[Rfam]
RNA sequence: ACAUGAUGAUGGUUGAAUAGUUCAGCAGAUUAAAUCGUGAAGGGGUUUACCAUUUGUCUGAUGUAUCU
Numbered sequence: 001a002c003a004u005g006a007u008g009a010u011g012g013u014u015g016a017a018u019a020g021u022u023c024a025g026c027a028g029a030u031u032a033a034a035u036c037g038u039g040a041a042g043g044g045g046u047u048u049a050c051c052a053u054u055u056g057u058c059u060g061a062u063g064u065a066u067c068u
Base pairs, nucleotide, nucleotide: 001066003064004063006038007037008036009035010034013028014027015026043055044054045053046052
Rfam assigns this 68-nucleotide RNA sequence from Jaculus jaculus to the family "Small nucleolar RNA SNORD77". On this family, see Tycowski et al., Curr Biol 2004: "Guide RNAs with 5' caps and novel box C/D snoRNA-like domains for modification of snRNAs in metazoa". U77 belongs to the C/D family of snoRNAs. The family has 21 seed sequences and 396 matches in Rfam 15.1. The family's consensus secondary structure was predicted with RNAalifold. NCBI's taxonomy places the organism under Eukaryota, Sarcopterygii, Dipnotetrapodomorpha, Euarchontoglires, Jaculus. Clan: SNORD77 clan. The match comes from Rfam's covariance-model search (69 bits).